[Rfam]
RNA sequence: UAAGUAAGCCAGACAAUCGCGGGUAGCUUUUAGCUACGUGAGGAAAGUCGGAGCUCCAUAGAGCAGGGUGCUAGGUAACGCCUAGUGAGAGUGAUCUUAAGGAAAGUGCAACAGAAAAUAACCGCCACUUUUGUGGUAAGGAUGAAAAGGUGAGGUAAGAGCUCACCGUUUGCUAGGUGACUAGCAAAGCCGUGUAAACCCCACCUGGAGCAAGGCCAGAAUAGGAUAAAAAGGGUAUUGCUCGUACCCUCCGGUUGGUAGGCCGCUUGAGUUUAUUGGUGACAAUAAGCCUAGAAAGAUGAUUGUCAAAUACAGAACUCCGCUUAUAGACUUGCUUAUUAU
Numbered sequence: 001u002a003a004g005u006a007a008g009c010c011a012g013a014c015a016a017u018c019g020c021g022g023g024u025a026g027c028u029u030u031u032a033g034c035u036a037c038g039u040g041a042g043g044a045a046a047g048u049c050g051g052a053g054c055u056c057c058a059u060a061g062a063g064c065a066g067g068g069u070g071c072u073a074g075g076u077a078a079c080g081c082c083u084a085g086u087g088a089g090a091g092u093g094a095u096c097u098u099a100a101g102g103a104a105a106g107u108g109c110a111a112c113a114g115a116a117a118a119u120a121a122c123c124g125c126c127a128c129u130u131u132u133g134u135g136g137u138a139a140g141g142a143u144g145a146a147a148a149g150g151u152g153a154g155g156u157a158a159g160a161g162c163u164c165a166c167c168g169u170u171u172g173c174u175a176g177g178u179g180a181c182u183a184g185c186a187a188a189g190c191c192g193u194g195u196a197a198a199c200c201c202c203a204c205c206u207g208g209a210g211c212a213a214g215g216c217c218a219g220a221a222u223a224g225g226a227u228a229a230a231a232a233g234g235g236u237a238u239u240g241c242u243c244g245u246a247c248c249c250u251c252c253g254g255u256u257g258g259u260a261g262g263c264c265g266c267u268u269g270a271g272u273u274u275a276u277u278g279g280u281g282a283c284a285a286u287a288a289g290c291c292u293a294g295a296a297a298g299a300u301g302a303u304u305g306u307c308a309a310a311u312a313c314a315g316a317a318c319u320c321c322g323c324u325u326a327u328a329g330a331c332u333u334g335c336u337u338a339u340u341a342u
Stems, first nucleotide, its partner, number of pairs: 001338008010329001011327001012307007020040002023037006045325003049322005054210004061243004066206005071085005086100001087098004101201002106199002108195003122141002124137005149167006168190001169188008214264004221255002224252003234248005271290008